[Rfam]
RNA sequence: CUCCCUCGGCCUUACUCCAGGGGCUUUUUGCUGUAAGGUUCCUGGCAUUGCCGGAGGGUACAUGAACAAGCACGCAUCCCUCCCCAGGGAGACUCUGCUGUUCUCUGGGGCCUACACGUGGAGCUGACAGU
Numbered sequence: 001c002u003c004c005c006u007c008g009g010c011c012u013u014a015c016u017c018c019a020g021g022g023g024c025u026u027u028u029u030g031c032u033g034u035a036a037g038g039u040u041c042c043u044g045g046c047a048u049u050g051c052c053g054g055a056g057g058g059u060a061c062a063u064g065a066a067c068a069a070g071c072a073c074g075c076a077u078c079c080c081u082c083c084c085c086a087g088g089g090a091g092a093c094u095c096u097g098c099u100g101u102u103c104u105c106u107g108g109g110g111c112c113u114a115c116a117c118g119u120g121g122a123g124c125u126g127a128c129a130g131u
Base pairs, nucleotide, nucleotide: 003058004057005056006055007054009052011050017045018044019043020042021041022040023039024038025037026036027035069125070124071123073121082110083109084108085107086106087105089104091102092101

The family of this 131-nucleotide RNA sequence from Bos taurus is "Small nucleolar RNA SNORA49". The snoRNA ACA49 has no identified RNA target. NB genomic sequence 1-nt different from published. The family's consensus secondary structure was predicted with RNAalifold.